[Rfam]
RNA sequence: AACUUAUCAAGAGAGGUGGAGGGACAUGGCCCUAUGAAGCCCGGCAACCAAUUCAAUCGAAUUAAGGUGCCAACCGUUUGCAAGGAUGUAAUCCUUGAUCGAUAAGUG
Numbered sequence: 001a002a003c004u005u006a007u008c009a010a011g012a013g014a015g016g017u018g019g020a021g022g023g024a025c026a027u028g029g030c031c032c033u034a035u036g037a038a039g040c041c042c043g044g045c046a047a048c049c050a051a052u053u054c055a056a057u058c059g060a061a062u063u064a065a066g067g068u069g070c071c072a073a074c075c076g077u078u079u080g081c082a083a084g085g086a087u088g089u090a091a092u093c094c095u096u097g098a099u100c101g102a103u104a105a106g107u108g
Stems, first nucleotide, its partner, number of pairs: 002107007013042001015041003021032003028078002043071004048067002050063004076100001081097006

The family of this 108-nucleotide RNA sequence from Abyssicoccus albus is "SAM riboswitch aptamer (S box leader)". It scores 86 bits against the family's covariance model. The base pairs follow the family's consensus structure, which is taken from published work.